[Rfam]
RNA sequence: CACCAAGGUGAUUCCUUGUCCAAGGGGCUUAAUGUGGCCUCUUUAGGGAAUGAGCAAAUUGGAAUAAACUCUGGCUUCAGGGUGUCAGCAGAGAAGGUGAUGCUUAAAGUCCUUUGCCUUCCUUUGGCUGCCUACACAA
Numbered sequence: 001c002a003c004c005a006a007g008g009u010g011a012u013u014c015c016u017u018g019u020c021c022a023a024g025g026g027g028c029u030u031a032a033u034g035u036g037g038c039c040u041c042u043u044u045a046g047g048g049a050a051u052g053a054g055c056a057a058a059u060u061g062g063a064a065u066a067a068a069c070u071c072u073g074g075c076u077u078c079a080g081g082g083u084g085u086c087a088g089c090a091g092a093g094a095a096g097g098u099g100a101u102g103c104u105u106a107a108a109g110u111c112c113u114u115u116g117c118c119u120u121c122c123u124u125u126g127g128c129u130g131c132c133u134a135c136a137c138a139a
Stems, first nucleotide, its partner, number of pairs: 003062004009056002019049003022043007074129001077127002080121002087113002090110001
The family of this 139-nucleotide sequence from Myotis myotis is "Small nucleolar RNA SNORA67". Lineage of the source: Eukaryota > Bilateria > Craniata > Sarcopterygii > Myotis. About the family: U67 belongs to the H/ACA class of snoRNAs which are thought to guide the sites of modification of uridines to pseudouridines. It scores 74 bits against the family's covariance model.